Overview: The record is a 91-nucleotide RNA sequence from Arabis nemorensis, which matches "Small nucleolar RNA R21" in Rfam. Pairs were carried over by alignment from the consensus structure, which was predicted with PFOLD. NCBI's taxonomy places the organism under Eukaryota, Euphyllophyta, Magnoliopsida, Mesangiospermae, Arabis.
RNA sequence: CAUCCCCCCAGUGAUGCCUGAAAAAGAUAAAAUAGUUAAAAGUAGUGACUGAUUAUCUUAUUGAUGAAGUCUUCAGAUCAUCUGAGGGAUU
Dot-bracket structure: .(((((...............................................................................))))).
The match comes from Rfam's covariance-model search (49 bits). It is annotated as a C/D-box small nucleolar RNA.